Record summary: A member of the RNA family "S15-Halobacteria ribosomal protein leader", 66 nucleotides long. Rfam classes the family as a cis-regulatory leader. On this family, see Eckert and Weinberg, BMC Microbiol 2020: "Discovery of 20 novel ribosomal leader candidates in bacteria and archaea". The sequence is in the family's curated seed alignment.
RNA sequence: GUGGGAACAACACGGCCGCAAAUCUGACUCGCCGUCCACUCGGGCGGCUUGGGAUUGCGGAAGUGA
Numbered sequence: 001g002u003g004g005g006a007a008c009a010a011c012a013c014g015g016c017c018g019c020a021a022a023u024c025u026g027a028c029u030c031g032c033c034g035u036c037c038a039c040u041c042g043g044g045c046g047g048c049u050u051g052g053g054a055u056u057g058c059g060g061a062a063g064u065g066a
Stems, first nucleotide, its partner, number of pairs: 011065003016060006024053002031048007